Nuclear RNase P: a 528-nucleotide RNA sequence from Suillus subaureus. The base pairs follow the family's consensus structure, which is taken from published work. Clan: RNaseP clan. The match comes from Rfam's covariance-model search (70 bits). Rfam's curators write: Ribonuclease P (RNase P) is a ubiquitous endoribonuclease, found in archaea, bacteria and eukarya as well as chloroplasts and mitochondria. Its best characterised activity is the generation of mature 5'-ends of tRNAs by cleaving the 5'-leader elements of precursor-tRNAs. Cellular RNase Ps are ribonucleoproteins. RNA from bacterial RNase Ps retains its catalytic activity in the absence of the protein subunit, i.e. it is a ribozyme. Isolated eukaryotic and archaeal RNase P RNA has not been shown to retain its catalytic function, but is still essential for the catalytic activity of the holoenzyme. Although the archaeal and eukaryotic holoenzyme s have a much greater protein content than the bacterial ones, the RNA cores from all the three lineages are homologous -- helices corresponding to P1, P2, P3, P4, and P10/11 are common to all cellular RNase P RNAs. Yet, there is considerable sequence variation, particularly among the eukaryotic RNAs.
RNA sequence: CCAGCUCGAAAGCCACGAAUGCUCAUCACAUACAGGAUCGCUCCACGCAUCCAAAUUCCUGAGCGGGCUAAGGUCUGAGCAUUCCAAUCCCCCUCGAUCGGCUCCAGCAGAGCCCAGCUCUAACCAGCUGCGUGGCAUACCAGAAAAGCAGCUUCGUUUCUCAUCGUCCCGAAGACUCUGUUAUCACAGAAGAGGGCGAGAACGAAAACUUUGAAAACGCUGCGGGGAUCGGGCGAACUUGUCUCAGUCGUCGCUAUCGUGCAUGCGUCUGUGAAGAAGGCGCUCAUGAUGACUAGCGUUGUGUCGACAAUGUAGUGUCGCUCCCGCAAAGUGGACCAAGCCUGUUGCAGGCUGGUUACGGGGUCAUCAUGAACUGUCGGAAGAGGGUAAUCCCUCGAGGCAUGAGGCCAACCACCUCGUUGCGUACGAGGCGCGACUCCUAUGGGACUGGUUCGUCCUUGAGUUCACUUCGUGGCUCACGUAUCUUUUGUGGAUCGUGAAACUCGAUUCAGACUACUCUUGGGCUGG
Numbered sequence: 001c002c003a004g005c006u007c008g009a010a011a012g013c014c015a016c017g018a019a020u021g022c023u024c025a026u027c028a029c030a031u032a033c034a035g036g037a038u039c040g041c042u043c044c045a046c047g048c049a050u051c052c053a054a055a056u057u058c059c060u061g062a063g064c065g066g067g068c069u070a071a072g073g074u075c076u077g078a079g080c081a082u083u084c085c086a087a088u089c090c091c092c093c094u095c096g097a098u099c100g101g102c103u104c105c106a107g108c109a110g111a112g113c114c115c116a117g118c119u120c121u122a123a124c125c126a127g128c129u130g131c132g133u134g135g136c137a138u139a140c141c142a143g144a145a146a147a148g149c150a151g152c153u154u155c156g157u158u159u160c161u162c163a164u165c166g167u168c169c170c171g172a173a174g175a176c177u178c179u180g181u182u183a184u185c186a187c188a189g190a191a192g193a194g195g196g197c198g199a200g201a202a203c204g205a206a207a208a209c210u211u212u213g214a215a216a217a218c219g220c221u222g223c224g225g226g227g228a229u230c231g232g233g234c235g236a237a238c239u240u241g242u243c244u245c246a247g248u249c250g251u252c253g254c255u256a257u258c259g260u261g262c263a264u265g266c267g268u269c270u271g272u273g274a275a276g277a278a279g280g281c282g283c284u285c286a287u288g289a290u291g292a293c294u295a296g297c298g299u300u301g302u303g304u305c306g307a308c309a310a311u312g313u314a315g316u317g318u319c320g321c322u323c324c325c326g327c328a329a330a331g332u333g334g335a336c337c338a339a340g341c342c343u344g345u346u347g348c349a350g351g352c353u354g355g356u357u358a359c360g361g362g363g364u365c366a367u368c369a370u371g372a373a374c375u376g377u378c379g380g381a382a383g384a385g386g387g388u389a390a391u392c393c394c395u396c397g398a399g400g401c402a403u404g405a406g407g408c409c410a411a412c413c414a415c416c417u418c419g420u421u422g423c424g425u426a427c428g429a430g431g432c433g434c435g436a437c438u439c440c441u442a443u444g445g446g447a448c449u450g451g452u453u454c455g456u457c458c459u460u461g462a463g464u465u466c467a468c469u470u471c472g473u474g475g476c477u478c479a480c481g482u483a484u485c486u487u488u489u490g491u492g493g494a495u496c497g498u499g500a501a502a503c504u505c506g507a508u509u510c511a512g513a514c515u516a517c518u519c520u521u522g523g524g525c526u527g528g
Stems, first nucleotide, its partner, number of pairs: 001528004007522003012476007020065005035052004040046001075512005083228003100114005115130005131224006151209001153207001477500005
Dot-bracket structure: ((((..(((..(((((((.(((((..........((((.(.....)..))))........))))).........[[[[[...(((..............(((((.....)))))(((((......)))))((((((..............(.(.....................................................).).........)))))).))).................................................................................................................................................................................................................................................)))))))(((((..............))))).......]]]]].......)))..))))